[Rfam]
RNA sequence: UUUCGGUUUGUGACCGACACUAACGGGUAGUUGAGGCAUCUCGUAUUCGCUGUUUUAUACUCGUUUUUGCGAUCACAAAUUCUGAAA
Numbered sequence: 001u002u003u004c005g006g007u008u009u010g011u012g013a014c015c016g017a018c019a020c021u022a023a024c025g026g027g028u029a030g031u032u033g034a035g036g037c038a039u040c041u042c043g044u045a046u047u048c049g050c051u052g053u054u055u056u057a058u059a060c061u062c063g064u065u066u067u068u069g070c071g072a073u074c075a076c077a078a079a080u081u082c083u084g085a086a087a
Stems, first nucleotide, its partner, number of pairs: 003085003007079007015071002018069002022065008